[Rfam]
RNA sequence: UUUUCUAGUUUUGUGUCUUAUGAUGAAGCUUCAUAGGGCAGAUUCUGAGCUGAGAAUUGCAAUCUCUCACCACUGAUAAUCACCAUAUGCAAUCUGAAGACACUGCCU
Numbered sequence: 001u002u003u004u005c006u007a008g009u010u011u012u013g014u015g016u017c018u019u020a021u022g023a024u025g026a027a028g029c030u031u032c033a034u035a036g037g038g039c040a041g042a043u044u045c046u047g048a049g050c051u052g053a054g055a056a057u058u059g060c061a062a063u064c065u066c067u068c069a070c071c072a073c074u075g076a077u078a079a080u081c082a083c084c085a086u087a088u089g090c091a092a093u094c095u096g097a098a099g100a101c102a103c104u105g106c107c108u
Stems, first nucleotide, its partner, number of pairs: 011105001013103006028093001030091001032089003037081002041077001044076002047073001049071001051069004
RNA: Small nucleolar RNA SNORD90
Organism: Chelonia mydas